[Rfam]
RNA: Potassium channel RNA editing signal
Organism: Hydra vulgaris
RNA sequence: AUUGGAUACGGCGAUAUUGUUCCAGUCACGUGGUUAGGCAAAAUAUUCGGAUCAAUCUGUGCUGUAAUUGGAGUGCUUAUAGUGGCUCUACCAAUCUCCAUAAUUGGAAGUAAU
Dot-bracket structure: ((.(..(.(((..((...(.(...............((((........((...........))..........))))................).)...))..))).)..).))